[Rfam]
RNA: Small nucleolar RNA SNORD103/SNORD85
Organism: Chiloscyllium punctatum
RNA sequence: UCUGACAAUAAUGACACACUUAUCUUCACUGAGAAGUGUUCGAUAAUGAGAAUUUUGCUAUUCUGAAAGAUCUAAGCCAGA
Dot-bracket structure: ((((.(.....................................................................).))))